The family of this 115-nucleotide sequence from Larimichthys crocea is "Small nucleolar RNA SNORD67". It is annotated as a C/D-box small nucleolar RNA. About the family: snoRNA HBII-166 belongs to the C/D family of snoRNAs. The family has 15 seed sequences and 781 matches in Rfam 15.1. The match comes from Rfam's covariance-model search (62 bits).
[Rfam]
RNA sequence: UGUGACAGUGAUGAGUUGCACUAUUAGGCGGGCUGCUGGUUGCAGUUGCACAGUGGACCCGUCCUGACAACCUAUGUUGACACACCCAUUGUGCACAGGGGCCAUCUGAGUCACA
Numbered sequence: 001u002g003u004g005a006c007a008g009u010g011a012u013g014a015g016u017u018g019c020a021c022u023a024u025u026a027g028g029c030g031g032g033c034u035g036c037u038g039g040u041u042g043c044a045g046u047u048g049c050a051c052a053g054u055g056g057a058c059c060c061g062u063c064c065u066g067a068c069a070a071c072c073u074a075u076g077u078u079g080a081c082a083c084a085c086c087c088a089u090u091g092u093g094c095a096c097a098g099g100g101g102c103c104a105u106c107u108g109a110g111u112c113a114c115a
Base pairs, nucleotide, nucleotide: 004114007111024067025066026065027064028062029061030060031059033056034055035054041050042049043048
NCBI's taxonomy places the organism under Eukaryota, Vertebrata, Eurypterygia, Sciaenidae, Larimichthys. The base pairs follow the family's consensus structure.